[Rfam]
RNA sequence: AAACUCUUUAAAACAGUCCUGAGAGACUGCUAAGAGCAGAGAAAACCUUGGUUUUAUUAAACCUAGGGUAAGGUAUGUCGUUUCGACUUACCUCUGCAGUCCUCUUAGCCAAACAGGCAAAGAGGGCUUUUUUU
Numbered sequence: 001a002a003a004c005u006c007u008u009u010a011a012a013a014c015a016g017u018c019c020u021g022a023g024a025g026a027c028u029g030c031u032a033a034g035a036g037c038a039g040a041g042a043a044a045a046c047c048u049u050g051g052u053u054u055u056a057u058u059a060a061a062c063c064u065a066g067g068g069u070a071a072g073g074u075a076u077g078u079c080g081u082u083u084c085g086a087c088u089u090a091c092c093u094c095u096g097c098a099g100u101c102c103u104c105u106u107a108g109c110c111a112a113a114c115a116g117g118c119a120a121a122g123a124g125g126g127c128u129u130u131u132u133u134u
Stems, first nucleotide, its partner, number of pairs: 004036005014029005044069001046067003050063005098128009108118003